The record is a 110-nucleotide RNA sequence from Solanum tuberosum, which matches "MIR8024 microRNA precursor family" in Rfam.
The match comes from Rfam's covariance-model search (58 bits).
Gene Ontology terms of the family: RISC complex and miRNA-mediated post-transcriptional gene silencing.
[Rfam]
RNA sequence: CUGAAUAAUUUGAAGACUUCAACUUGCAAACUUGAAGACUCUUCAACUUGCAAACUUGAAGAAUGUAAAGACUUAAACUUGCAUACUUGGAGAUUCUAAAGACUUCAUCU
Numbered sequence: 001c002u003g004a005a006u007a008a009u010u011u012g013a014a015g016a017c018u019u020c021a022a023c024u025u026g027c028a029a030a031c032u033u034g035a036a037g038a039c040u041c042u043u044c045a046a047c048u049u050g051c052a053a054a055c056u057u058g059a060a061g062a063a064u065g066u067a068a069a070g071a072c073u074u075a076a077a078c079u080u081g082c083a084u085a086c087u088u089g090g091a092g093a094u095u096c097u098a099a100a101g102a103c104u105u106c107a108u109c110u
Base pairs, nucleotide, nucleotide: 002107003106004105005104009100010099011098012097014095017092018091019090020089021088025083026082027081028080032077033076035074036073037072